[Rfam]
Nucleotides: 085
Base pairs, nucleotide, nucleotide: 005079006078011024012023013022032075033074034073035072
Number, partner (000 for none) and nucleotide at each position: 001000c002000a003000g004000u005079a006078g007000c008000a009000c010000a011024g012023g013022u014000u015000a016000u017000u018000u019000a020000a021000a022013g023012c024011c025000a026000g027000a028000g029000a030000g031000a032075g033074u034073g035072a036000g037000a038000c039000c040000c041000a042000u043000g044000a045000a046000c047000a048000c049000u050000u051000g052000a053000g054000a055000c056000u057000g058000u059000c060000a061000c062000u063000u064000g065000a066000a067000c068000u069000g070000a071000u072035u073034c074033a075032c076000a077000u078006c079005u080000c081000a082000u083000u084000u085000u
Shown here is an 85-nucleotide sequence, a member of the family "ctgf/hcs24 CAESAR". The base pairs follow the family's consensus structure, which is taken from published work. The family has 9 seed sequences and 518 matches in Rfam 15.1. Rfam describes the family as follows. The 3' UTR of human connective tissue growth factor/hypertrophic chondrocyte specific 24 (ctgf/hcs24) mRNA has been shown to repress ctgf gene expression. Rfam classes the family as a cis-regulatory element. Its family is annotated with negative regulation of gene expression in the Gene Ontology.